[Rfam]
RNA sequence: AAGAAAGUGACUGCCGCCCCGCACAGGGGCAACGCUUAUAGACCACUAAGAAAACGGGAUCCGGCAACAAGCGAGAGCAAGAAAGCAGCAUCACCGCCCCCGCAACCGAUGC
Numbered sequence: 001a002a003g004a005a006a007g008u009g010a011c012u013g014c015c016g017c018c019c020c021g022c023a024c025a026g027g028g029g030c031a032a033c034g035c036u037u038a039u040a041g042a043c044c045a046c047u048a049a050g051a052a053a054a055c056g057g058g059a060u061c062c063g064g065c066a067a068c069a070a071g072c073g074a075g076a077g078c079a080a081g082a083a084a085g086c087a088g089c090a091u092c093a094c095c096g097c098c099c100c101c102g103c104a105a106c107c108g109a110u111g112c
Base pairs, nucleotide, nucleotide: 011075012074013072014071016030017029018028019027020026058065096103097102
Shown here is a 112-nucleotide RNA sequence from Caballeronia novacaledonica, a member of the family "Burkholderia sRNA Bp1_Cand684_SIPHT". The base pairs follow the family's consensus structure, which was predicted with RNAalifold. It is annotated as a small RNA. The source organism's lineage runs through Bacteria, Pseudomonadota, Betaproteobacteria, Burkholderiales and Caballeronia. A search with the family's covariance model found it, with a score of 48 bits.